[Rfam]
This 92-nucleotide RNA from Sorghum bicolor belongs to the Rfam family "MIR5387 microRNA precursor family". The family's consensus secondary structure was predicted with RNAalifold. Lineage of the source: Eukaryota > Streptophytina > Tracheophyta > Spermatophyta > Sorghum. Gene Ontology terms of the family: RISC complex and miRNA-mediated post-transcriptional gene silencing. It scores 71 bits against the family's covariance model.
RNA sequence: UAGCACACGAACUGGUGCUAAAGGGUCCCUGUCCGACAGCACCUGUCAGUAGGCGUUGGGCAGGACCCUUUAGCACCGGUUCGUAUUACAAA
Numbered sequence: 001u002a003g004c005a006c007a008c009g010a011a012c013u014g015g016u017g018c019u020a021a022a023g024g025g026u027c028c029c030u031g032u033c034c035g036a037c038a039g040c041a042c043c044u045g046u047c048a049g050u051a052g053g054c055g056u057u058g059g060g061c062a063g064g065a066c067c068c069u070u071u072a073g074c075a076c077c078g079g080u081u082c083g084u085a086u087u088a089c090a091a092a
Base pairs, nucleotide, nucleotide: 003089005086007084008083009082010081011080012079013078014077015076016075017074018073019072020071021070022069023068024067025066026065028064029063033059034058035057036056037055043049044048
Dot-bracket structure: ..(.(.((((((((((((((((((((.((...(((((.....((...)).....)))))...)))))))))))))))))))))).)..)...